[Rfam]
RNA sequence: UAGGUAGUAAGGUUAAUCGCUGCCUGUGAAAACAGGGAGAGGAAAGUCCGGGCUCCGCAGGGCAGAGAGGGCAGUUAACGGCUGCUGAGGGAAACCUUAAGGAAAGUGCCACAGAAAAUAGACCGCCACUUGCUGGUAAGGGUGAAAAGGUGGUGUAAGAGACCACCAGUUUCUUAAGAGAUUAAGAAAGCUUGGUAAACCCCCUCUGGAGCAAGGCUAAAUAGGAGAGAAUAUGGGCUGCUCGUCCACUCUCAGGGUAAGCUGCUAGAGUCGAUAAGUAAUUAUAGACCUAGAUAAAUGAUUAACUCAGACAAAACCCGGCUUAUUUUACUACCUUUUUU
Numbered sequence: 001u002a003g004g005u006a007g008u009a010a011g012g013u014u015a016a017u018c019g020c021u022g023c024c025u026g027u028g029a030a031a032a033c034a035g036g037g038a039g040a041g042g043a044a045a046g047u048c049c050g051g052g053c054u055c056c057g058c059a060g061g062g063c064a065g066a067g068a069g070g071g072c073a074g075u076u077a078a079c080g081g082c083u084g085c086u087g088a089g090g091g092a093a094a095c096c097u098u099a100a101g102g103a104a105a106g107u108g109c110c111a112c113a114g115a116a117a118a119u120a121g122a123c124c125g126c127c128a129c130u131u132g133c134u135g136g137u138a139a140g141g142g143u144g145a146a147a148a149g150g151u152g153g154u155g156u157a158a159g160a161g162a163c164c165a166c167c168a169g170u171u172u173c174u175u176a177a178g179a180g181a182u183u184a185a186g187a188a189a190g191c192u193u194g195g196u197a198a199a200c201c202c203c204c205u206c207u208g209g210a211g212c213a214a215g216g217c218u219a220a221a222u223a224g225g226a227g228a229g230a231a232u233a234u235g236g237g238c239u240g241c242u243c244g245u246c247c248a249c250u251c252u253c254a255g256g257g258u259a260a261g262c263u264g265c266u267a268g269a270g271u272c273g274a275u276a277a278g279u280a281a282u283u284a285u286a287g288a289c290c291u292a293g294a295u296a297a298a299u300g301a302u303u304a305a306c307u308c309a310g311a312c313a314a315a316a317c318c319c320g321g322c323u324u325a326u327u328u329u330a331c332u333a334c335c336u337u338u339u340u341u
Stems, first nucleotide, its partner, number of pairs: 002336009011326001012306007020039002023036005044324003048321005053211004060243004066207005071085005086100001087098004101202002106200002108196003123141002125137004149167006169191001170189008215263004225253005234248005270289003274285004
RNA: Bacterial RNase P class A
Organism: Ilyobacter polytropus